[Rfam]
RNA sequence: GGUAUUCCUUAUCUAUCUAAUCGUUGAUUGUCUGGAACCUGUCCCAUUGCACUCUGACGGCCUGUAAAGGUUCGUAAAAGUGCAAUAAGACAGGUUCUGCGUUUAGUUGCCGCGCUCUAAAAGUUG
Numbered sequence: 001g002g003u004a005u006u007c008c009u010u011a012u013c014u015a016u017c018u019a020a021u022c023g024u025u026g027a028u029u030g031u032c033u034g035g036a037a038c039c040u041g042u043c044c045c046a047u048u049g050c051a052c053u054c055u056g057a058c059g060g061c062c063u064g065u066a067a068a069g070g071u072u073c074g075u076a077a078a079a080g081u082g083c084a085a086u087a088a089g090a091c092a093g094g095u096u097c098u099g100c101g102u103u104u105a106g107u108u109g110c111c112g113c114g115c116u117c118u119a120a121a122a123g124u125u126g
Base pairs, nucleotide, nucleotide: 001111002110003109004108022101023100024099034098035097036096037095038094039093040092041091042090043089046086047085048084049083050082052080053079055077
RNA: tp2
Organism: Kosakonia cowanii